[Rfam]
RNA sequence: AAAGUUUGAGGAUAGAAAGGCAGCUAUCACGCCUAUAAGUGAAAUGCUAAAUUGUCCAGAAUGUGGAUUGUUUUUACAAUCAUCACCUCGUUGUAGCGAGACGGAAAGGUGUAAGUAUAGAGGGUAACAGCUUAAAGGUCUUACAAGAGAUGUGGGGUACGCCGUCCCACCAAGCUUU
Numbered sequence: 001a002a003a004g005u006u007u008g009a010g011g012a013u014a015g016a017a018a019g020g021c022a023g024c025u026a027u028c029a030c031g032c033c034u035a036u037a038a039g040u041g042a043a044a045u046g047c048u049a050a051a052u053u054g055u056c057c058a059g060a061a062u063g064u065g066g067a068u069u070g071u072u073u074u075u076a077c078a079a080u081c082a083u084c085a086c087c088u089c090g091u092u093g094u095a096g097c098g099a100g101a102c103g104g105a106a107a108g109g110u111g112u113a114a115g116u117a118u119a120g121a122g123g124g125u126a127a128c129a130g131c132u133u134a135a136a137g138g139u140c141u142u143a144c145a146a147g148a149g150a151u152g153u154g155g156g157g158u159a160c161g162c163c164g165u166c167c168c169a170c171c172a173a174g175c176u177u178u
Stems, first nucleotide, its partner, number of pairs: 001178008011028005019163003030147001031139004152170005

Description:
Shown here is a 178-nucleotide RNA, a member of the family "skipping-rope RNA". Rfam classes the family as a small RNA.